[Rfam]
RNA sequence: ACUCAACGAGCUUUUAAUUAGAAGAGGUGAGUUUCAUUUGUAAAAGCAAGCUGUAUUUGAACAGAUCCUUGAUCAAUUGUGUAGCCUCAAACUUGAUUUUUUGGAGUUU
Numbered sequence: 001a002c003u004c005a006a007c008g009a010g011c012u013u014u015u016a017a018u019u020a021g022a023a024g025a026g027g028u029g030a031g032u033u034u035c036a037u038u039u040g041u042a043a044a045a046g047c048a049a050g051c052u053g054u055a056u057u058u059g060a061a062c063a064g065a066u067c068c069u070u071g072a073u074c075a076a077u078u079g080u081g082u083a084g085c086c087u088c089a090a091a092c093u094u095g096a097u098u099u100u101u102u103g104g105a106g107u108u109u
Base pairs, nucleotide, nucleotide: 024088025087026086027085028084035079036078038076039075044070045069046068051064052063053062054061
RNA: 6S-Flavo RNA
Organism: Bacteroidetes bacterium SCGC AAA795-G10